Rfam assigns this 89-nucleotide RNA from Eubacterium sp. CAG:161 to the family "GA-cis RNA". Rfam classes the family as a small RNA. The match comes from Rfam's covariance-model search (77 bits).

RNA sequence: UUGAGGAGGAAACAAAAUGAACGAAGUUCAUUUUCUAUAAACGUUUCCGACGAAUUGCCAACCACCGAAGGUAGGAGGCGUUACAUAUU
Numbered sequence: 001u002u003g004a005g006g007a008g009g010a011a012a013c014a015a016a017a018u019g020a021a022c023g024a025a026g027u028u029c030a031u032u033u034u035c036u037a038u039a040a041a042c043g044u045u046u047c048c049g050a051c052g053a054a055u056u057g058c059c060a061a062c063c064a065c066c067g068a069a070g071g072u073a074g075g076a077g078g079c080g081u082u083a084c085a086u087a088u089u
Base pairs, nucleotide, nucleotide: 008048009047010046011045012044013043016032017031018030019029020028021027057079058078059077062074065071066070